This 130-nucleotide RNA from Streptomyces kanasensis belongs to the Rfam family "Streptomyces RNA 5676". The match comes from Rfam's covariance-model search (113 bits). The source organism's lineage runs through Bacteria, Actinomycetota, Actinomycetes, Streptomycetaceae and Streptomyces. The family's RNA type in Rfam is small RNA. The pairing is the family consensus, mapped onto this sequence.
RNA sequence: GGAUGAGAGAAGAAAGCCGCUCGCAGGGGACUGCGGGCGGAUCCAGGUCGGGACCUCCCCAGUUCCGCCCUGGCCGUGCCCUCGCGCACCGCGCCGGCGCCUCUGGCUCCGGUACUCCUCACCGAUCGGA
Numbered sequence: 001g002g003a004u005g006a007g008a009g010a011a012g013a014a015a016g017c018c019g020c021u022c023g024c025a026g027g028g029g030a031c032u033g034c035g036g037g038c039g040g041a042u043c044c045a046g047g048u049c050g051g052g053a054c055c056u057c058c059c060c061a062g063u064u065c066c067g068c069c070c071u072g073g074c075c076g077u078g079c080c081c082u083c084g085c086g087c088a089c090c091g092c093g094c095c096g097g098c099g100c101c102u103c104u105g106g107c108u109c110c111g112g113u114a115c116u117c118c119u120c121a122c123c124g125a126u127c128g129g130a
Stems, first nucleotide, its partner, number of pairs: 004121004009117002017040010043073005049067006076089004094112004099107003122129002